[Rfam]
The family of this 86-nucleotide RNA from Ostreococcus tauri is "Selenocysteine transfer RNA". The match comes from Rfam's covariance-model search (75 bits). Lineage of the source: Eukaryota > Viridiplantae > Mamiellales > Bathycoccaceae > Ostreococcus.

RNA sequence: GCCAGGGCGAGCUUCGCUGGCGCGGAGUGCGGCCUUCAAAGCCGUAGGGGCUUAGCGGCCCAGUGGUUCGAUUCCACCGACUUGGC
Numbered sequence: 001g002c003c004a005g006g007g008c009g010a011g012c013u014u015c016g017c018u019g020g021c022g023c024g025g026a027g028u029g030c031g032g033c034c035u036u037c038a039a040a041g042c043c044g045u046a047g048g049g050g051c052u053u054a055g056c057g058g059c060c061c062a063g064u065g066g067u068u069c070g071a072u073u074c075c076a077c078c079g080a081c082u083u084g085g086c
Stems, first nucleotide, its partner, number of pairs: 001086006008079002012027006028046006048061005063077004
Dot-bracket structure: ((((((.((..((((((....))))))((((((.......)))))).(((((....))))).((((.......)))))).))))))